[Rfam]
RNA sequence: CUUGAGGGAGCCCAGCCACAACGGCCGCCCCUCCAACCGCUCCUGACCGUACGUCGCCAGCAACGCCUGCGCCUC
Numbered sequence: 001c002u003u004g005a006g007g008g009a010g011c012c013c014a015g016c017c018a019c020a021a022c023g024g025c026c027g028c029c030c031c032u033c034c035a036a037c038c039g040c041u042c043c044u045g046a047c048c049g050u051a052c053g054u055c056g057c058c059a060g061c062a063a064c065g066c067c068u069g070c071g072c073c074u075c
Stems, first nucleotide, its partner, number of pairs: 015025003031071001033069001038065002043060003047056001049054001
The record is a 75-nucleotide sequence from Streptomyces sp. YIM 121038, which matches "ASpks TB sRNA" in Rfam. NCBI's taxonomy places the organism under Bacteria, Bacillati, Actinomycetota, Actinomycetes, Streptomyces. The base pairs follow the family's consensus structure, which is taken from published work.